[Rfam]
Nucleotides: 106
Stems, first nucleotide, its partner, number of pairs: 009098005020032004034086003038081001041080003047073010
Number, partner (000 for none) and nucleotide at each position: 001000u002000g003000a004000c005000a006000c007000a008000c009098c010097c011096c012095u013094g014000g015000a016000g017000a018000g019000a020032c021031c022030c023029c024000u025000u026000a027000u028000u029023g030022g031021g032020g033000c034086a035085u036084c037000a038081a039000a040000g041080g042079a043078g044000c045000a046000a047073c048072u049071u050070u051069u052068a053067a054066u055065a056064a057000g058000a059000u060000u061000a062000g063000u064056u065055u066054a067053u068052u069051a070050a071049a072048g073047g074000g075000a076000a077000u078043c079042u080041u081038u082000c083000a084036g085035a086034u087000a088000a089000a090000a091000g092000g093000a094013c095012a096011g097010g098009g099000a100000a101000u102000a103000a104000a105000a106000a